Overview
Shown here is an 84-nucleotide RNA from Mandrillus leucophaeus, a member of the family "mir-548 microRNA precursor family". Rfam 15.1 lists 3,009 matches to the family in 27 species.
RNA sequence: UAUUAGGUUGGUACAAAGGUAAUUGCGGUUUUUGCCUUUAAAAGUAAUGGCAACAACCGCAAUUACCUUUGCACCAACCUAGUA
Numbered sequence: 001u002a003u004u005a006g007g008u009u010g011g012u013a014c015a016a017a018g019g020u021a022a023u024u025g026c027g028g029u030u031u032u033u034g035c036c037u038u039u040a041a042a043a044g045u046a047a048u049g050g051c052a053a054c055a056a057c058c059g060c061a062a063u064u065a066c067c068u069u070u071g072c073a074c075c076a077a078c079c080u081a082g083u084a
Stems, first nucleotide, its partner, number of pairs: 001084012014071017032053005038047003
A reference for the family is Witten et al. (2010), "Ultra-high throughput sequencing-based small RNA discovery and discrete statistical biomarker analysis in a collection of cervical tumours and matched controls", BMC Biol.